Streptomyces-metH RNA: a 128-nucleotide RNA sequence from Streptomyces sp. DvalAA-14. It scores 80 bits against the family's covariance model. Lineage of the source: Bacteria > Bacillati > Kitasatosporales > Streptomycetaceae > Streptomyces. It is annotated as a small RNA.

RNA sequence: CCGUCCGCCCUUCGAAAUGGCUUCGGGGCCUUCGGCUCCCGCCGGUUAGGCUGACGUGGUGCGCGGUCUGCCCCCGGGGCGGGCGGCGCAUAGCCGACAGCCGUCGCAUCCCAGGGAGCAUCCCCAUG
Dot-bracket structure: ...........................................................((((..((((((((...))))))))..))))..((.(((....))))).....................